[Rfam]
RNA: mir-957 microRNA precursor family
RNA sequence: UAGACCUUAGUUUUCGACGUGUUUUGGUGUGCUGGGGAGUUCUAUUCCGAUUGAAACCGUCCAAAACUGAGGCCAAC
Numbered sequence: 001u002a003g004a005c006c007u008u009a010g011u012u013u014u015c016g017a018c019g020u021g022u023u024u025u026g027g028u029g030u031g032c033u034g035g036g037g038a039g040u041u042c043u044a045u046u047c048c049g050a051u052u053g054a055a056a057c058c059g060u061c062c063a064a065a066a067c068u069g070a071g072g073c074c075a076a077c
Stems, first nucleotide, its partner, number of pairs: 005072001007070008016061004021057008